[Rfam]
Rfam assigns this 107-nucleotide RNA sequence from Virgibacillus necropolis to the family "SAM riboswitch aptamer (S box leader)". Taxonomically the source falls in Virgibacillus (Bacteria, Bacillota, Bacilli, Bacillaceae). The base pairs follow the family's consensus structure, which is taken from published work. It scores 69 bits against the family's covariance model.
RNA sequence: UUCUUAUAAAGAAAGGUGGAGGGAAUGGCCCAAUGAAACCCAGCAACCUUUGAGACCUUUUCAAAAAGCUGCUAAUUCCAGCAGACAGUAGUUCUGACAGAUAAAAU
Numbered sequence: 001u002u003c004u005u006a007u008a009a010a011g012a013a014a015g016g017u018g019g020a021g022g023g024a025a026u027g028g029c030c031c032a033a034u035g036a037a038a039c040c041c042a043g044c045a046a047c048c049u050u051u052g053a054g055a056c057c058u059u060u061u062c063a064a065a066a067a068g069c070u071g072c073u074a075a076u077u078c079c080a081g082c083a084g085a086c087a088g089u090a091g092u093u094c095u096g097a098c099a100g101a102u103a104a105a106a107u
Stems, first nucleotide, its partner, number of pairs: 002106001004104004015040003021031003026080003042073004048068001049065004077099001082096004